[Rfam]
RNA sequence: CUAUAGUUUUUAAACUAUGGCGGAAGGAG
Numbered sequence: 001c002u003a004u005a006g007u008u009u010u011u012a013a014a015c016u017a018u019g020g021c022g023g024a025a026g027g028a029g
Stems, first nucleotide, its partner, number of pairs: 001020008
The family of this 29-nucleotide RNA is "L31-Firmicutes ribosomal protein leader". Rfam's curators put it in the seed alignment. The family is grouped with related families in Rfam's "Ribosomal Protein L31 Leader clan". A reference for the family is Eckert and Weinberg (2020), "Discovery of 20 novel ribosomal leader candidates in bacteria and archaea", BMC Microbiol.